[Rfam]
RNA sequence: UACUACCAACCCCUAUCUCCACCUCCACGUGGUGAUCGCUGGGGGUUCUUUCUUUACGAAAAACUGCAAAGGGAGAAGG
Numbered sequence: 001u002a003c004u005a006c007c008a009a010c011c012c013c014u015a016u017c018u019c020c021a022c023c024u025c026c027a028c029g030u031g032g033u034g035a036u037c038g039c040u041g042g043g044g045g046u047u048c049u050u051u052c053u054u055u056a057c058g059a060a061a062a063a064c065u066g067c068a069a070a071g072g073g074a075g076a077a078g079g
Stems, first nucleotide, its partner, number of pairs: 012079003016075001018073003021033003045065001047063001049061004
RNA: drz-agam-1 ribozyme
Organism: Hermetia illucens